A member of the RNA family "BsrG" from Paenibacillus larvae, 250 nucleotides long. A reference for the family is Jahn et al. (2012), "BsrG/SR4 from Bacillus subtilis--the first temperature-dependent type I toxin-antitoxin system", Mol Microbiol. Rfam 15.1 lists 614 matches to the family in 343 species. bsrE, bsrG and bsrH pair through intermolecular interactions with antisense sRNAs. They form type I toxin/antitoxin system that includes an mRNA encoding for a short, toxic peptide (bsrE, bsrG and bsrH) and an antitoxin that is comprised of an antisense RNA. bsrG encodes a 39-amino-acid toxin, and the 180 nucleotide antisense sRNA called SR4 acts as the antitoxin (they overlap by 123 nucleotides). SR4 interaction with the 3'UTR of bsrG RNA promotes bsrG degradation and inhibits its translation. BsrG interferes with cell envelope biosynthesis, causes membrane invaginations and delocalisation of the cell wall synthesis and initiates autolysis. bsrE RNA encodes 30 amino-acid toxin peptide. It scores 57 bits against the family's covariance model.

[Rfam]
RNA sequence: AUACAAUAGAGUAAGUUUCAAGGGUGUCGGCUAACCUCAAAUCAGGAGGUGAUGCCCUGUGGAAGUGAAAGACGCACUGACGCUGAUGAUUUCCUUCGCGAGCUUAGUCGUCCUGAUCCUUUCGCAGAAAAAGAAGUAGAGCUCCCUUGACUUUGCGGCUCAAGGAGGUCUAUCUUCGUCCCAAUGAUUGAAGCUGAUUACCCUUGAAGGCAAUCUAUUGUGUUAGACCGUGGAUGUUCCCGCAUCUACG
Dot-bracket structure: (((((.(((..(.(((((((((((..((...(.(((((.......))))).)........(((((.(.......((..........))........((.(...........).)).).)))))...............))...)))))))...........((...........))...............)))).).(.((......)).)..))).))))).....(((((((((....)))))))))